The family of this 223-nucleotide RNA sequence from Torulaspora globosa is "Small nucleolar RNA snR63".
The family is grouped with related families in Rfam's "SNORD46 clan".
NCBI's taxonomy places the organism under Eukaryota, Fungi, Dikarya, Saccharomycotina, Torulaspora.
A search with the family's covariance model found it, with a score of 110 bits.
Its family is annotated with nucleolus and RNA processing in the Gene Ontology.
By type it is a C/D-box small nucleolar RNA.

[Rfam]
RNA sequence: CAACAUGAUGAUAUUUCUUUUUUCCUCUGGUCUGUUUAGAACAGAAGCUUUACAGCUUUUUGAGACCAUCCUGCAGUUUUGUAUUACUCGCGUUUGACUCUUGUCUGUUGAUUGGCACCGUUUUGGUGCUUCAUUGGACAAGAAUUGGACAAUUAUGAGUAAGAUGGGCGUCUCUUAAUGUGAUGAGUGGCCAGAUAACCUUAUAGUCAUAGUUACACUGAUA
Numbered sequence: 001c002a003a004c005a006u007g008a009u010g011a012u013a014u015u016u017c018u019u020u021u022u023u024c025c026u027c028u029g030g031u032c033u034g035u036u037u038a039g040a041a042c043a044g045a046a047g048c049u050u051u052a053c054a055g056c057u058u059u060u061u062g063a064g065a066c067c068a069u070c071c072u073g074c075a076g077u078u079u080u081g082u083a084u085u086a087c088u089c090g091c092g093u094u095u096g097a098c099u100c101u102u103g104u105c106u107g108u109u110g111a112u113u114g115g116c117a118c119c120g121u122u123u124u125g126g127u128g129c130u131u132c133a134u135u136g137g138a139c140a141a142g143a144a145u146u147g148g149a150c151a152a153u154u155a156u157g158a159g160u161a162a163g164a165u166g167g168g169c170g171u172c173u174c175u176u177a178a179u180g181u182g183a184u185g186a187g188u189g190g191c192c193a194g195a196u197a198a199c200c201u202u203a204u205a206g207u208c209a210u211a212g213u214u215a216c217a218c219u220g221a222u223a
Base pairs, nucleotide, nucleotide: 005210006209007208008207009206010024011023013021026195027194028193029192030191031190032189034188035187036186041181042180043179044059045058046057047056048055049054062174063173064172065171066170072083073082074081075080087168088167089166095147096146097145099143100142101141102140103139104138105137106136109133110132114129116128117127118126119125150159